[Rfam]
RNA sequence: GACGGACGGAGCCCCCCGGCCCCUGCCCGGCACCACCCUGACGUACUUCCCCAACGCCAGGUGGGUACCGGACGGGGACCAGGGGGCUCCACCACAACCGG
Numbered sequence: 001g002a003c004g005g006a007c008g009g010a011g012c013c014c015c016c017c018g019g020c021c022c023c024u025g026c027c028c029g030g031c032a033c034c035a036c037c038c039u040g041a042c043g044u045a046c047u048u049c050c051c052c053a054a055c056g057c058c059a060g061g062u063g064g065g066u067a068c069c070g071g072a073c074g075g076g077g078a079c080c081a082g083g084g085g086g087c088u089c090c091a092c093c094a095c096a097a098c099c100g101g
Stems, first nucleotide, its partner, number of pairs: 010088007018080002021077005027071004032066003037061004042056003

The record is a 101-nucleotide RNA from Dietzia sp. ANT_WB102, which matches "mraW RNA" in Rfam. A search with the family's covariance model found it, with a score of 67 bits. It is annotated as a cis-regulatory element.